[Rfam]
RNA sequence: GCUAUCUGCGAUUCGUGUAGGAUUUGAACCUGCAGCAGGUCGAGUCGAACGAAGAGAGACAGCGUUGCGACAGCAACGACCCGAAGGGCGAGGCGAAGCCGAGUCAUCCUGCACGACCCACCA
Number, nucleotide and partner (000 for none) at each position: 001g000002c000003u000004a000005u000006c000007u000008g000009c000010g000011a000012u000013u000014c000015g114016u113017g112018u111019a110020g109021g108022a000023u106024u000025u000026g000027a000028a000029c000030c000031u000032g000033c090034a000035g000036c087037a000038g000039g000040u085041c083042g082043a000044g000045u000046c056047g000048a000049a000050c000051g000052a000053a000054g000055a000056g046057a000058g000059a000060c000061a000062g000063c078064g077065u076066u075067g074068c073069g000070a000071c000072a000073g068074c067075a066076a065077c064078g063079a000080c000081c000082c042083g041084a000085a040086g000087g036088g000089c000090g033091a000092g000093g000094c000095g000096a000097a000098g000099c000100c000101g000102a000103g000104u000105c000106a023107u000108c021109c020110u019111g018112c017113a016114c015115g000116a000117c000118c000119c000120a000121c000122c000123a000
This 123-nucleotide sequence from Erwinia billingiae belongs to the Rfam family "RtT RNA".
This family represents a bacterial cis-regulatory element known as RtT RNA. The exact function of RtT is unknown although it is thought that it may be involved in changing the cellular response in relation to amino acid starvation.
A reference for the family is Bosl and Kersten (1991), "A novel RNA product of the tyrT operon of Escherichia coli", Nucleic Acids Res.
The family has 57 seed sequences and 651 matches in Rfam 15.1.
The source organism's lineage runs through Bacteria, Pseudomonadati, Gammaproteobacteria, Enterobacterales and Erwinia.